[Rfam]
RNA sequence: GAACGAAGUAUCGGCAACGCUGUGCAGGCGGGGUUGCCAAACCACCCUGUGCUGCAAAAGCCGUAAGGCCGCUGUGGUGAACGUUCAGGGGAAAGGUGGAAUAAAUCCAUCAGGU
Numbered sequence: 001g002a003a004c005g006a007a008g009u010a011u012c013g014g015c016a017a018c019g020c021u022g023u024g025c026a027g028g029c030g031g032g033g034u035u036g037c038c039a040a041a042c043c044a045c046c047c048u049g050u051g052c053u054g055c056a057a058a059a060g061c062c063g064u065a066a067g068g069c070c071g072c073u074g075u076g077g078u079g080a081a082c083g084u085u086c087a088g089g090g091g092a093a094a095g096g097u098g099g100a101a102u103a104a105a106u107c108c109a110u111c112a113g114g115u
Stems, first nucleotide, its partner, number of pairs: 001009001013038006020031004043114001045090005051078002054075003060069002095111006
Dot-bracket structure: (.......)...((((((.((((....)))).))))))....(.(((((.((.(((...((......))...))).)).......)))))....((((((.....))))))..).
This 115-nucleotide RNA from Antarcticibacterium flavum belongs to the Rfam family "Group II catalytic intron D1-D4-2". NCBI's taxonomy places the organism under Bacteria, Flavobacteriia, Flavobacteriales, Flavobacteriaceae, Antarcticibacterium. Group II introns are found in rRNA, tRNA and mRNA of organelles in fungi, plants and protists, and also in mRNA in bacteria. The pairing is the family consensus, mapped onto this sequence.